[Rfam]
RNA sequence: GAAACCUCAUCUUGCUCGCCGCCAUCCGGGCGCCAGGGCAGUGUUUUUUGUAAAACACGAACAGUUCCGCUCGGAUGAGGAGAGAGU
Dot-bracket structure: ....((((((((..(((..((((.....))))...)))..(((((((....)))))))((.(......).)))))))))).......
Shown here is an 87-nucleotide sequence, a member of the family "RAGATH-10 RNA". The literature on the family includes a 2015 paper in Nat Chem Biol by Weinberg et al., "New classes of self-cleaving ribozymes revealed by comparative genomics analysis". It is one of the family's seed sequences. By type it is a small RNA.